RNA sequence: CCUCCCGCUUUUUCCUCCCUGAGCGGGGCCUGCUGGAUGCUCCACGCAUUCAGGGGCUUCUCAGCCCGGCCUUUGUGCCGGGCUUUUUUUU
Numbered sequence: 001c002c003u004c005c006c007g008c009u010u011u012u013u014c015c016u017c018c019c020u021g022a023g024c025g026g027g028g029c030c031u032g033c034u035g036g037a038u039g040c041u042c043c044a045c046g047c048a049u050u051c052a053g054g055g056g057c058u059u060c061u062c063a064g065c066c067c068g069g070c071c072u073u074u075g076u077g078c079c080g081g082g083c084u085u086u087u088u089u090u091u
Base pairs, nucleotide, nucleotide: 004027005026006025007024008023009022028057029056030055031054033053034052035051036050037049038048039047040046064083065082066081067080068079069078070077